[Rfam]
RNA sequence: AAUUUGGCUCAAAAGAAACAAAAAAGAAGCAGAUCUAUUUUAUACCCAAAAGUAUCAAUAUGCAAUGGGG
Numbered sequence: 001a002a003u004u005u006g007g008c009u010c011a012a013a014a015g016a017a018a019c020a021a022a023a024a025a026g027a028a029g030c031a032g033a034u035c036u037a038u039u040u041u042a043u044a045c046c047c048a049a050a051a052g053u054a055u056c057a058a059u060a061u062g063c064a065a066u067g068g069g070g
Base pairs, nucleotide, nucleotide: 003024004023006019009016010015045069046068047067052061053060054059
Dot-bracket structure: ..((.(..((....))..)...))....................(((....(((....))).....))).

Rfam assigns this 70-nucleotide RNA sequence from Gossypium mustelinum to the family "Plastid-clpP 5UTR RNA".
By type it is a cis-regulatory element.
On this family, see Richter et al., Plant Commun 2023: "Retrograde signaling in plants: A critical review focusing on the GUN pathway and beyond".
The organism belongs to Gossypium, within Eukaryota.